[Rfam]
RNA sequence: GACAGAUAGGUUCAGCGCGUUAAGUGUUGAGGGCCGGGAAUAACCUCAAACGAAAAGACAGGUGAUCUUGCGGUGCUGAAUCACCCCAGCUGUC
Numbered sequence: 001g002a003c004a005g006a007u008a009g010g011u012u013c014a015g016c017g018c019g020u021u022a023a024g025u026g027u028u029g030a031g032g033g034c035c036g037g038g039a040a041u042a043a044c045c046u047c048a049a050a051c052g053a054a055a056a057g058a059c060a061g062g063u064g065a066u067c068u069u070g071c072g073g074u075g076c077u078g079a080a081u082c083a084c085c086c087c088a089g090c091u092g093u094c
Stems, first nucleotide, its partner, number of pairs: 001094005009082009018072003024051002027049006038087001055069004